[Rfam]
RNA sequence: GUUGCUCACUCUCCCUCAAAGACUUCCAGCAGCAAUCCUGGACACUACCCCAGCAAUGCUUGAAGUCUUUGGGGAGAGUGAACAGAAC
Numbered sequence: 001g002u003u004g005c006u007c008a009c010u011c012u013c014c015c016u017c018a019a020a021g022a023c024u025u026c027c028a029g030c031a032g033c034a035a036u037c038c039u040g041g042a043c044a045c046u047a048c049c050c051c052a053g054c055a056a057u058g059c060u061u062g063a064a065g066u067c068u069u070u071g072g073g074g075a076g077a078g079u080g081a082a083c084a085g086a087a088c
Base pairs, nucleotide, nucleotide: 006081007080008079009078010077011076012075013074014073015072017071018070019069020068021067022066023065024064025063026062
Overview:
The family of this 88-nucleotide RNA from Durio zibethinus is "MIR473 microRNA precursor family". Gene Ontology terms of the family: RISC complex and miRNA-mediated post-transcriptional gene silencing. The base pairs follow the family's consensus structure, which was predicted with WAR. The organism belongs to Durio, within Eukaryota. Rfam 15.1 lists 189 matches to the family in 90 species.